[Rfam]
RNA: Small Cajal body specific RNA 16
Organism: Cuculus canorus
RNA sequence: CAGGGCUGGGGAAGGGCUGCUGGAUGGUGGGGGCCACUGGCCCAGCCAUGUUCCAACCAGCCUCACCCAUGCCCGAGAGCAACUCCUGGGCAGGCUCCCCACCGGGGCGUGUCCCUUGCAGUAACAGGUGUGAGCAUCCAUGCAGCAUUUUGGUGGUCAUGUAUGAUACUGCACACAACA
Number, nucleotide and partner (000 for none) at each position: 001c000002a000003g074004g073005g072006c071007u000008g068009g067010g066011g000012a000013a000014g000015g062016g061017c060018u059019g057020c000021u055022g054023g053024a052025u000026g046027g000028u044029g043030g000031g000032g000033g000034c000035c000036a000037c000038u000039g000040g000041c000042c000043c029044a028045g000046c026047c000048a000049u000050g000051u000052u024053c023054c022055a021056a000057c019058c000059a018060g017061c016062c015063u000064c000065a000066c010067c009068c008069a000070u000071g006072c005073c004074c003075g000076a000077g000078a000079g000080c000081a000082a000083c000084u000085c000086c107087u106088g000089g103090g102091c000092a000093g099094g000095c000096u000097c000098c000099c093100c000101a000102c090103c089104g000105g000106g087107g086108c000109g000110u000111g000112u000113c000114c000115c000116u000117u173118g172119c171120a170121g169122u168123a167124a000125c165126a164127g000128g000129u000130g000131u159132g158133a157134g000135c155136a154137u153138c152139c000140a000141u000142g149143c000144a000145g000146c000147a000148u000149u142150u000151u000152g138153g137154u136155g135156g000157u133158c132159a131160u000161g000162u000163a000164u126165g125166a000167u123168a122169c121170u120171g119172c118173a117174c000175a000176c000177a000178a000179c000180a000